[Rfam]
RNA sequence: UAACCAGUCUCGCUGAAUCUCCGAGUAUGGAGAACGGGGGAACCGACCACGGCAAUUCAUGAGAUUAUGAAUGAUUAUGCCGUGAAGGAUUUCUUUGUAAGGGUCUAUGGGGUGAAUUCGAGGUCAUUGCGCCAUGAGCGAAUGAACUGAGAAAGGGCGACUCUCUACGUCCUAACCCGACAGCUAACCUCGUAGGCGUAUCCAGAGAGGCAAC
Numbered sequence: 001u002a003a004c005c006a007g008u009c010u011c012g013c014u015g016a017a018u019c020u021c022c023g024a025g026u027a028u029g030g031a032g033a034a035c036g037g038g039g040g041a042a043c044c045g046a047c048c049a050c051g052g053c054a055a056u057u058c059a060u061g062a063g064a065u066u067a068u069g070a071a072u073g074a075u076u077a078u079g080c081c082g083u084g085a086a087g088g089a090u091u092u093c094u095u096u097g098u099a100a101g102g103g104u105c106u107a108u109g110g111g112g113u114g115a116a117u118u119c120g121a122g123g124u125c126a127u128u129g130c131g132c133c134a135u136g137a138g139c140g141a142a143u144g145a146a147c148u149g150a151g152a153a154a155g156g157g158c159g160a161c162u163c164u165c166u167a168c169g170u171c172c173u174a175a176c177c178c179g180a181c182a183g184c185u186a187a188c189c190u191c192g193u194a195g196g197c198g199u200a201u202c203c204a205g206a207g208a209g210g211c212a213a214c
Base pairs, nucleotide, nucleotide: 011198012197013196014195018033019032020031021030022029023028034193035192036191037190038189039188044109045108110178111177112176118152119151155172156171157170158169
Description:
Rfam assigns this 214-nucleotide sequence from Paenibacillus lutimineralis to the family "c-di-AMP riboswitch aptamer (ydaO/yuaA leader)". It scores 77 bits against the family's covariance model.